[Rfam]
RNA sequence: UUGGGCGCACACGACUGGCGCGGGUGGGACACCACCGGGGAGUGAUCGGUCGGGGCGUCGGCCGCCUGGGUGCCCCCG
Numbered sequence: 001u002u003g004g005g006c007g008c009a010c011a012c013g014a015c016u017g018g019c020g021c022g023g024g025u026g027g028g029a030c031a032c033c034a035c036c037g038g039g040g041a042g043u044g045a046u047c048g049g050u051c052g053g054g055g056c057g058u059c060g061g062c063c064g065c066c067u068g069g070g071u072g073c074c075c076c077c078g
Base pairs, nucleotide, nucleotide: 003051004050006048007047010044011043012042015039016038017066018065019064020063024035025034026033027032055073056072057071058070059069
Dot-bracket structure: ..((.((..(((..(([[[[...((((....))))..))..)))..)).))...(((((...]]]]..))))).....
Record summary:
Shown here is a 78-nucleotide RNA sequence from Catellatospora sp. IY07-71, a member of the family "ZMP/ZTP riboswitch aptamer (pfl RNA motif)". NCBI's taxonomy places the organism under Bacteria, Bacillati, Actinomycetes, Micromonosporaceae, Catellatospora. The match comes from Rfam's covariance-model search (44 bits). Rfam 15.1 lists 3,295 matches to the family in 2,545 species. Gene Ontology terms of the family: regulation of purine nucleotide biosynthetic process and one-carbon metabolic process.